[Rfam]
RNA sequence: UCGGGUUUCCUGCUUCCUAAAAGCAGGUGGUGCGGAUGGGUUACUCCCGCCUGGUUGGUGGUCCAGUCAAAACCACCUUCGCACCAGUGG
Numbered sequence: 001u002c003g004g005g006u007u008u009c010c011u012g013c014u015u016c017c018u019a020a021a022a023g024c025a026g027g028u029g030g031u032g033c034g035g036a037u038g039g040g041u042u043a044c045u046c047c048c049g050c051c052u053g054g055u056u057g058g059u060g061g062u063c064c065a066g067u068c069a070a071a072a073c074c075a076c077c078u079u080c081g082c083a084c085c086a087g088u089g090g
Base pairs, nucleotide, nucleotide: 009027010026011025012024013023014022015021037049038048039047040046051066052065053064054063057077058076059075060074061073